[Rfam]
RNA sequence: GUAUGUGAAAGCGCUGAAUAGAGUGUUGACUUUGGAAUGGCCAUAAGCAUUAAAAAAAGACUGAAAGCUAC
Numbered sequence: 001g002u003a004u005g006u007g008a009a010a011g012c013g014c015u016g017a018a019u020a021g022a023g024u025g026u027u028g029a030c031u032u033u034g035g036a037a038u039g040g041c042c043a044u045a046a047g048c049a050u051u052a053a054a055a056a057a058a059g060a061c062u063g064a065a066a067g068c069u070a071c
Base pairs, nucleotide, nucleotide: 001071002070003069005068006067010062011061022051023050024049025048026047027046033043034042035041
RNA: GAIT element